[Rfam]
RNA: Enterobacterial sRNA STnc240
Nucleotides: 076
Base pairs, nucleotide, nucleotide: 011021012020040067041066042065043064044063045062046061047060048059
Number, partner (000 for none) and nucleotide at each position: 001000c002000a003000a004000a005000g006000a007000u008000g009000g010000g011021g012020c013000a014000a015000a016000a017000u018000g019000c020012g021011c022000c023000g024000c025000u026000g027000c028000a029000a030000a031000a032000a033000a034000u035000u036000a037000g038000a039000a040067u041066a042065a043064u044063c045062g046061a047060c048059g049000a050000u051000a052000u053000a054000a055000a056000a057000g058000g059048c060047g061046u062045c063044g064043g065042u066041u067040a068000u069000u070000u071000u072000u073000u074000u075000u076000u